[Rfam]
RNA sequence: UAGUCGGAUAGAGGCGCGGAGUUCAUGCGUACCUCGGGGCAAGGCCAGGCAGCCGUCCCGGGGGAGAGGGGAUUCCGCCGAAGGAGCGCCGGGCGCCUGACCCGGAAUUCCUGGGCCGCGGGAGAAGAUCCCGCGGACUGUCACAGUUGUGGAGCGCUAUCCAAACG
Numbered sequence: 001u002a003g004u005c006g007g008a009u010a011g012a013g014g015c016g017c018g019g020a021g022u023u024c025a026u027g028c029g030u031a032c033c034u035c036g037g038g039g040c041a042a043g044g045c046c047a048g049g050c051a052g053c054c055g056u057c058c059c060g061g062g063g064g065a066g067a068g069g070g071g072a073u074u075c076c077g078c079c080g081a082a083g084g085a086g087c088g089c090c091g092g093g094c095g096c097c098u099g100a101c102c103c104g105g106a107a108u109u110c111c112u113g114g115g116c117c118g119c120g121g122g123a124g125a126a127g128a129u130c131c132c133g134c135g136g137a138c139u140g141u142c143a144c145a146g147u148u149g150u151g152g153a154g155c156g157c158u159a160u161c162c163a164a165a166c167g
Stems, first nucleotide, its partner, number of pairs: 006162006016078009032063008082112005089105005113139002116136008141152004
Dot-bracket structure: .....((((((....(((((((((.......((((((((................))))))))......)))))))))...(((((..(((((.......)))))..)))))((.((((((((.....)))))))).)).((((....))))....)))))).....
Rfam assigns this 167-nucleotide sequence from Lawsonibacter faecis to the family "Lysine riboswitch aptamer".
The source organism's lineage runs through Bacteria, Clostridia, Eubacteriales, Oscillospiraceae and Lawsonibacter.
Pairs were carried over by alignment from the consensus structure, which is taken from published work.
Gene Ontology term of the family: lysine biosynthetic process.
The match comes from Rfam's covariance-model search (94 bits).